RNA: Iron response element II
Organism: Chelonia mydas
RNA sequence: ACAUUUUCUUGGUCAGUGCAUUAAAAAAUGU
Number, nucleotide and partner (000 for none) at each position: 001a031002c030003a029004u028005u027006u026007u025008c000009u024010u023011g022012g021013u020014c018015a000016g000017u000018g014019c000020a013021u012022u011023a010024a009025a007026a006027a005028a004029u003030g002031u001